[Rfam]
RNA sequence: GGCAUGGAUACAAUUUUGGAGGACUUUCAAAAAGUAUCUAUGCCGGUGAUUCUAAAAGAAAAAGACCGGAUAGUUUUGGACUGUUCGGUCUUUCUUUUUG
Numbered sequence: 001g002g003c004a005u006g007g008a009u010a011c012a013a014u015u016u017u018g019g020a021g022g023a024c025u026u027u028c029a030a031a032a033a034g035u036a037u038c039u040a041u042g043c044c045g046g047u048g049a050u051u052c053u054a055a056a057a058g059a060a061a062a063a064g065a066c067c068g069g070a071u072a073g074u075u076u077u078g079g080a081c082u083g084u085u086c087g088g089u090c091u092u093u094c095u096u097u098u099u100g
Stems, first nucleotide, its partner, number of pairs: 001044011014032006065089011
RNA: trpB ncRNA motif
Organism: Lactococcus hircilactis